[Rfam]
The family of this 143-nucleotide RNA from Drosophila virilis is "Small nucleolar RNA psi18S-841/snoR66". The sequence is in the family's curated seed alignment.
RNA sequence: UGCAAGAGCACUCUGUAUCACAUAAAAUUUUUAUAACCUCAUGUGAGACAAUUUAAUACCUUGCUAGAUUAAAUUAAAGCUGCGACUUAUCCAUGUGUUCGUGUCCUUAUAACUGAUCACAUUGAAUACGCGCUAUACACUAG
Number, nucleotide and partner (000 for none) at each position: 001u000002g064003c063004a062005a061006g060007a000008g000009c000010a000011c000012u000013c000014u050015g049016u048017a000018u046019c045020a044021c043022a042023u041024a000025a000026a000027a039028u000029u000030u000031u000032u000033a000034u000035a000036a000037c000038c000039u027040c000041a023042u022043g021044u020045g019046a018047g000048a016049c015050a014051a000052u000053u000054u000055a000056a000057u000058a000059c000060c006061u005062u004063g003064c002065u000066a000067g000068a000069u000070u142071a141072a000073a000074u000075u000076a000077a134078a000079g133080c132081u000082g000083c130084g129085a000086c000087u000088u000089a000090u125091c124092c000093a122094u121095g120096u119097g118098u000099u116100c115101g113102u112103g000104u000105c000106c000107u000108u000109a000110u000111a000112a102113c101114u000115g100116a099117u000118c097119a096120c095121a094122u093123u000124g091125a090126a000127u000128a000129c084130g083131c000132g080133c079134u077135a000136u000137a000138c000139a000140c000141u071142a070143g000
It is annotated as an H/ACA-box small nucleolar RNA. psi18S-841 is a member of the H/ACA class of snoRNA. This family is responsible for guiding the modification of uridine 841 in Drosophila 18S rRNA to pseudouridine.